Selenocysteine insertion sequence 4: a 38-nucleotide sequence from Vagococcus allomyrinae. The base pairs follow the family's consensus structure, which was predicted with PFOLD.
RNA sequence: GGAACCUGUACCCGUUGCGGAGCAACUAUGGUAAAAGA
Dot-bracket structure: ....((.......(((((...)))))...)).......
Numbered sequence: 001g002g003a004a005c006c007u008g009u010a011c012c013c014g015u016u017g018c019g020g021a022g023c024a025a026c027u028a029u030g031g032u033a034a035a036a037g038a
Stems, first nucleotide, its partner, number of pairs: 005031002014026005
Rfam 15.1 lists 436 matches to the family in 281 species. Lineage of the source: Bacteria > Bacillati > Bacillota > Lactobacillales > Vagococcus.